[Rfam]
RNA: Small nucleolar RNA SNORA55
RNA sequence: GCACCACAUCUUUCCCAUUCCUUACUGUGCAGUGUGGGCCUGGGGAUACAUGGUGCUUACAGAAAAGCAGAGUAUAUCCAGACAGGUGACUUCAUCCCCUGAGCACCUGUCUCUACACCUCUGCCACACUU
Numbered sequence: 001g002c003a004c005c006a007c008a009u010c011u012u013u014c015c016c017a018u019u020c021c022u023u024a025c026u027g028u029g030c031a032g033u034g035u036g037g038g039c040c041u042g043g044g045g046a047u048a049c050a051u052g053g054u055g056c057u058u059a060c061a062g063a064a065a066a067g068c069a070g071a072g073u074a075u076a077u078c079c080a081g082a083c084a085g086g087u088g089a090c091u092u093c094a095u096c097c098c099c100u101g102a103g104c105a106c107c108u109g110u111c112u113c114u115a116c117a118c119c120u121c122u123g124c125c126a127c128a129c130u131u
Stems, first nucleotide, its partner, number of pairs: 001056005012046006020038002067124006080112008091103003